[Rfam]
RNA: Purine riboswitch aptamer
Organism: Anaerobacillus isosaccharinicus
RNA sequence: AAAUGUUGAAUUAAUAUGUUUCGUAUAUACUCAGGAAUAGGGCCUGAGCGUUUCUACCGAGCUACCGUAAAUAGCUUGACUACGAAGGAAGUACGUCUUUAU
Numbered sequence: 001a002a003a004u005g006u007u008g009a010a011u012u013a014a015u016a017u018g019u020u021u022c023g024u025a026u027a028u029a030c031u032c033a034g035g036a037a038u039a040g041g042g043c044c045u046g047a048g049c050g051u052u053u054c055u056a057c058c059g060a061g062c063u064a065c066c067g068u069a070a071a072u073a074g075c076u077u078g079a080c081u082a083c084g085a086a087g088g089a090a091g092u093a094c095g096u097c098u099u100u101a102u
Base pairs, nucleotide, nucleotide: 019087020086021085022084023083024082025081030048031047032046033045034044035043058078059077060076061075062074063073064072